U11 spliceosomal RNA: a 133-nucleotide RNA sequence from Neogobius melanostomus. The base pairs follow the family's consensus structure, which is taken from published work.

RNA sequence: AAAAAGACUUUCGGCUAUGUUUAGCACACAGAGGGCGAGAUUUCAACCCUUCGUCCGGAAUCGCCAUCAAGAGAUUUCGGAAGCACAAUAUUUAUGACCAGGGCUGGAGGGGCUCUUUUAUCCUGGUGUUCCA
Numbered sequence: 001a002a003a004a005a006g007a008c009u010u011u012c013g014g015c016u017a018u019g020u021u022u023a024g025c026a027c028a029c030a031g032a033g034g035g036c037g038a039g040a041u042u043u044c045a046a047c048c049c050u051u052c053g054u055c056c057g058g059a060a061u062c063g064c065c066a067u068c069a070a071g072a073g074a075u076u077u078c079g080g081a082a083g084c085a086c087a088a089u090a091u092u093u094a095u096g097a098c099c100a101g102g103g104c105u106g107g108a109g110g111g112g113c114u115c116u117u118u119u120a121u122c123c124u125g126g127u128g129u130u131c132c133a
Base pairs, nucleotide, nucleotide: 009083010082011081012080014025015024016023017022028054029053031051032050033049034048035047056079057078058077059076060075061074062073101131102130103129104128106127109124110123112122114120